[Rfam]
RNA: Bacterial large subunit ribosomal RNA, nucleotides 617 to 846
RNA sequence: GAGUUAUCCUUACGUGCGAGGUUAAGCAGACAAUGCGGAGCCGAAGCGAAAGCGAAUCUUAAUAGGGUGAAGAGUACGUAGGGAUAGACCCGAAGCCGUAGUGAUCUAGUCAUGAGCAGGUUGAAGUCUGGGUGAAUCCAGAUGGAGGACCGAACCGACCCCCGUUGAAACGUUGGCGGAUGACUUGUGAUUAGCGGAGAAAUUCCAAUCGAACACGGCGAUAGCUGGUU
Number, nucleotide and partner (000 for none) at each position: 001g000002a000003g000004u000005u086006a085007u084008c083009c082010u081011u080012a079013c078014g077015u076016g075017c074018g000019a000020g042021g041022u040023u039024a000025a000026g036027c035028a034029g000030a000031c000032a000033a000034u028035g027036c026037g000038g000039a023040g022041c021042c020043g000044a000045a000046g053047c052048g000049a000050a000051a000052g047053c046054g000055a000056a068057u067058c066059u065060u000061a000062a000063u000064a000065g059066g058067g057068u056069g000070a000071a000072g000073a000074g017075u016076a015077c014078g013079u012080a011081g010082g009083g008084a007085u006086a005087g000088a000089c228090c227091c000092g225093a000094a000095g000096c218097c217098g216099u215100a000101g214102u213103g000104a000105u000106c194107u193108a192109g191110u190111c189112a188113u187114g186115a185116g184117c182118a000119g151120g150121u149122u148123g000124a000125a000126g143127u142128c141129u140130g139131g138132g137133u000134g000135a000136a000137u132138c131139c130140a129141g128142a127143u126144g000145g000146a000147g000148g122149a121150c120151c119152g000153a000154a000155c179156c178157g177158a000159c176160c175161c000162c000163c172164g000165u000166u000167g000168a000169a000170a000171c000172g163173u000174u000175g160176g159177c157178g156179g155180a000181u000182g117183a000184c116185u115186u114187g113188u112189g111190a110191u109192u108193a107194g106195c000196g206197g205198a204199g000200a000201a000202a000203u000204u198205c197206c196207a000208a000209u000210c000211g000212a000213a102214c101215a099216c098217g097218g096219c000220g000221a000222u000223a000224g000225c092226u000227g090228g089229u000230u000